[Rfam]
RNA sequence: GGAUUGUCGGGAAGUGUCGAUCCGCCGGACGUCCACACUGGUCGCCUGGUCCGGCGGGGAGCCAGUGGCGAAACCGAGCCCGCGCAACG
Numbered sequence: 001g002g003a004u005u006g007u008c009g010g011g012a013a014g015u016g017u018c019g020a021u022c023c024g025c026c027g028g029a030c031g032u033c034c035a036c037a038c039u040g041g042u043c044g045c046c047u048g049g050u051c052c053g054g055c056g057g058g059g060a061g062c063c064a065g066u067g068g069c070g071a072a073a074c075c076g077a078g079c080c081c082g083c084g085c086a087a088c089g
Base pairs, nucleotide, nucleotide: 002088004086008082009081010080011079014062015061022057023056024055025054026053027052028051029050040075041074042071043070044069045068046067
The record is an 89-nucleotide sequence from Pilimelia anulata, which matches "c-di-GMP-II-GAG riboswitch aptamer" in Rfam.
The family is grouped with related families in Rfam's "c-di-GMP_II riboswitch clan".
Gene Ontology terms of the family: cyclic-di-GMP binding and regulation of gene expression.